[Rfam]
RNA sequence: GGCCUUUUCAUGAACCGAUCGAGCCCCUAUAUGCAUUCGUGCCGGGCUUGCUCGGCUAUGGGGAUAAACGAAGGCGUGCAAUAGACGCAGCGGACCCGGGGGCGGUACCCGGCGGCUCCACCAUAAUCCUCGCGAAAGCGGGGCUCAUGAUGGGGCCGAACUAGGAUCGACGUGUGUUGAAAAGCGCUAUCUAUCUCUCAGCGUGGGCCACUGUGACGGUCUGAAACACAAGUGCCAACGAUAACGAAGCACUCGCUAUUGCGGCCUAACCCCACGGCUUAACGGCCUAAGGUUAGACUAAAAUGCGCGGUUGGACCGCACCGGGCAACAGAAGCGGAUUCC
Numbered sequence: 001g002g003c004c005u006u007u008u009c010a011u012g013a014a015c016c017g018a019u020c021g022a023g024c025c026c027c028u029a030u031a032u033g034c035a036u037u038c039g040u041g042c043c044g045g046g047c048u049u050g051c052u053c054g055g056c057u058a059u060g061g062g063g064a065u066a067a068a069c070g071a072a073g074g075c076g077u078g079c080a081a082u083a084g085a086c087g088c089a090g091c092g093g094a095c096c097c098g099g100g101g102g103c104g105g106u107a108c109c110c111g112g113c114g115g116c117u118c119c120a121c122c123a124u125a126a127u128c129c130u131c132g133c134g135a136a137a138g139c140g141g142g143g144c145u146c147a148u149g150a151u152g153g154g155g156c157c158g159a160a161c162u163a164g165g166a167u168c169g170a171c172g173u174g175u176g177u178u179g180a181a182a183a184g185c186g187c188u189a190u191c192u193a194u195c196u197c198u199c200a201g202c203g204u205g206g207g208c209c210a211c212u213g214u215g216a217c218g219g220u221c222u223g224a225a226a227c228a229c230a231a232g233u234g235c236c237a238a239c240g241a242u243a244a245c246g247a248a249g250c251a252c253u254c255g256c257u258a259u260u261g262c263g264g265c266c267u268a269a270c271c272c273c274a275c276g277g278c279u280u281a282a283c284g285g286c287c288u289a290a291g292g293u294u295a296g297a298c299u300a301a302a303a304u305g306c307g308c309g310g311u312u313g314g315a316c317c318g319c320a321c322c323g324g325g326c327a328a329c330a331g332a333a334g335c336g337g338a339u340u341c342c
Stems, first nucleotide, its partner, number of pairs: 041056005060198005070191002074187004086176003090173003096112005113158007199213003204223006308323004314340002317337001
Overview:
Alphaproteobacteria transfer-messenger RNA: a 342-nucleotide RNA from Sphingomonas xinjiangensis. Lineage of the source: Bacteria > Pseudomonadati > Pseudomonadota > Sphingomonadaceae > Sphingomonas. About the family: Bacterial tmRNA, also known as 10Sa RNA or SsrA, is named for its dual tRNA and mRNA-like properties. Rfam links the family to the GO term RNA catabolic process. On this family, see Williams and Bartel, RNA 1996: "Phylogenetic analysis of tmRNA secondary structure". The family's consensus secondary structure is taken from published work.